[Rfam]
MIR7486 microRNA precursor family: an 87-nucleotide sequence from Gossypium mustelinum. Lineage of the source: Eukaryota > Viridiplantae > Euphyllophyta > Malvaceae > Gossypium. Its family is annotated with RISC complex and miRNA-mediated post-transcriptional gene silencing in the Gene Ontology.

RNA sequence: CUCAAGAAAGCGCUUUGCCUACGUGGACAGAAAGCGCGCCCUCAAUGAAGCGUUUUCUGUCCACUUAGGCAAAGCGCUUCCUUGAGG
Numbered sequence: 001c002u003c004a005a006g007a008a009a010g011c012g013c014u015u016u017g018c019c020u021a022c023g024u025g026g027a028c029a030g031a032a033a034g035c036g037c038g039c040c041c042u043c044a045a046u047g048a049a050g051c052g053u054u055u056u057c058u059g060u061c062c063a064c065u066u067a068g069g070c071a072a073a074g075c076g077c078u079u080c081c082u083u084g085a086g087g
Base pairs, nucleotide, nucleotide: 001086002085003084004083005082006081008079009078010077011076012075013074014073015072016071017070018069019068020067021066023064024063025062026061027060028059029058030057031056032055033054034053035052036051037050040047